The family of this 167-nucleotide RNA from Atopococcus tabaci is "Ribosomal protein L10 leader". Pairs were carried over by alignment from the consensus structure, which was predicted with CMfinder. The family's RNA type in Rfam is cis-regulatory leader. NCBI's taxonomy places the organism under Bacteria, Bacillati, Bacilli, Lactobacillales, Atopococcus.
RNA sequence: AGAAUAUUAUAUUUGAUGCCGAAGACCGUAAGGGGCGCAAGCCGUAAUAUAUCACCUUACCGAGGAAGAGAAUAUACACGAAAAAAGGAUUCAGAUUUUUGUAUCCGAUUAAACAUGUAUUUUAUCCUCUAUGUCUUUGGUGACAUGGGGGAUUUUUAUUUUCCAUA
Numbered sequence: 001a002g003a004a005u006a007u008u009a010u011a012u013u014u015g016a017u018g019c020c021g022a023a024g025a026c027c028g029u030a031a032g033g034g035g036c037g038c039a040a041g042c043c044g045u046a047a048u049a050u051a052u053c054a055c056c057u058u059a060c061c062g063a064g065g066a067a068g069a070g071a072a073u074a075u076a077c078a079c080g081a082a083a084a085a086a087g088g089a090u091u092c093a094g095a096u097u098u099u100u101g102u103a104u105c106c107g108a109u110u111a112a113a114c115a116u117g118u119a120u121u122u123u124a125u126c127c128u129c130u131a132u133g134u135c136u137u138u139g140g141u142g143a144c145a146u147g148g149g150g151g152a153u154u155u156u157u158a159u160u161u162u163c164c165a166u167a
Stems, first nucleotide, its partner, number of pairs: 028060006034043003125152010
Dot-bracket structure: ...........................(((((((((....)))...........))))))................................................................((((((((((........))))))))))...............
This family is a putative r-protein leader autoregulatory structure found in B. subtilis and other low-GC Gram-positive bacteria.